[Rfam]
RNA sequence: AAUUCUUGUGCUUUGAUUACACACUGUGAUAACUCUGUAGGCAUUACUUCGAACAAGUAGACAGAAUAAACAAACAUGAAAGCCCUUCUACAAGUGAUUAGCCUGGUCGUGAUUAGCGUGGUGGUGAUUAUUAUCCCACCGUGCGGGGCUGCACUUGGAGAAAGAAAGGCUUAAAAAUCAAGCCUGAAUCGAAAAAAACCCCCGCACCGAAAGGUCCGGGGGUUUUUUGUUGGGUAAAAAAUUUGGAGAGGAACAGAUAAUGCGUUACAGAAUAAAAUUCUGUUUCUCCAGUAGUGA
Numbered sequence: 001a002a003u004u005c006u007u008g009u010g011c012u013u014u015g016a017u018u019a020c021a022c023a024c025u026g027u028g029a030u031a032a033c034u035c036u037g038u039a040g041g042c043a044u045u046a047c048u049u050c051g052a053a054c055a056a057g058u059a060g061a062c063a064g065a066a067u068a069a070a071c072a073a074a075c076a077u078g079a080a081a082g083c084c085c086u087u088c089u090a091c092a093a094g095u096g097a098u099u100a101g102c103c104u105g106g107u108c109g110u111g112a113u114u115a116g117c118g119u120g121g122u123g124g125u126g127a128u129u130a131u132u133a134u135c136c137c138a139c140c141g142u143g144c145g146g147g148g149c150u151g152c153a154c155u156u157g158g159a160g161a162a163a164g165a166a167a168g169g170c171u172u173a174a175a176a177a178u179c180a181a182g183c184c185u186g187a188a189u190c191g192a193a194a195a196a197a198a199c200c201c202c203c204g205c206a207c208c209g210a211a212a213g214g215u216c217c218g219g220g221g222g223u224u225u226u227u228u229g230u231u232g233g234g235u236a237a238a239a240a241a242u243u244u245g246g247a248g249a250g251g252a253a254c255a256g257a258u259a260a261u262g263c264g265u266u267a268c269a270g271a272a273u274a275a276a277a278u279u280c281u282g283u284u285u286c287u288c289c290a291g292u293a294g295u296g297a
Base pairs, nucleotide, nucleotide: 006032007031008030009029012026015022038073040071044066045065047064048063049061050060084251085250086249088248089247092243093242098237099236100235102234103233104232105231106230108118109117110116120140121139122138123137124136126135127134128133142159144157145156146155147154163189168185169184171182172181193228194227195226196225197224198223199222200221201220202219203218204217206215207214208213252284253283254282255281256280257279260273261272